[Rfam]
RNA: c-di-AMP riboswitch aptamer (ydaO/yuaA leader)
Organism: Brevibacillus fluminis
RNA sequence: UUGCAUAUUCGGCCUAAUCCCGGGGCAUCCGGGAACGGAGGAACCAAUCUUUUGGGGUUAAUUCUGCAGCAGAUGCAGAAGGGAUGAGAAACUCUUUCGCCAUCCUACCCGUCAGCUAACUUCGUCGGCUAAAGCGGAGGAGGU
Numbered sequence: 001u002u003g004c005a006u007a008u009u010c011g012g013c014c015u016a017a018u019c020c021c022g023g024g025g026c027a028u029c030c031g032g033g034a035a036c037g038g039a040g041g042a043a044c045c046a047a048u049c050u051u052u053u054g055g056g057g058u059u060a061a062u063u064c065u066g067c068a069g070c071a072g073a074u075g076c077a078g079a080a081g082g083g084a085u086g087a088g089a090a091a092c093u094c095u096u097u098c099g100c101c102a103u104c105c106u107a108c109c110c111g112u113c114a115g116c117u118a119a120c121u122u123c124g125u126c127g128g129c130u131a132a133a134g135c136g137g138a139g140g141a142g143g144u
Stems, first nucleotide, its partner, number of pairs: 011130004018034007035125006045054002055110003063079004082105004